[Rfam]
Nucleotides: 076
Stems, first nucleotide, its partner, number of pairs: 006021006037046003047076003056069005
Number, partner (000 for none) and nucleotide at each position: 001000a002000a003000a004000c005000g006021u007020u008019c009018g010017u011016a012000g013000u014000g015000a016011u017010a018009u019008g020007a021006a022000a023000c024000g025000g026000a027000a028000g029000g030000u031000a032000g033000a034000g035000a036000a037046g038045u039044c040000a041000g042000c043000a044039g045038a046037c047076g048075u049074c050000a051000u052000a053000g054000u055000a056069g057068c058067a059066a060065c061000g062000c063000a064000a065060g066059u067058u068057g069056c070000g071000a072000a073000g074049g075048a076047c